[Rfam]
RNA sequence: UUAAAAUGGUGCAAAAUACGCCCCCGGCAAAAUGACACAAUAACCGACGCUUAUCGCGCCGGUUAUUUUUUUGC
Dot-bracket structure: ..........((.......))...................((((((.((.......)).)))))).........
Enterobacterial sRNA STnc240: a 74-nucleotide RNA from Izhakiella capsodis. Pairs were carried over by alignment from the consensus structure, which was predicted with WAR. It scores 72 bits against the family's covariance model. The family's RNA type in Rfam is small RNA.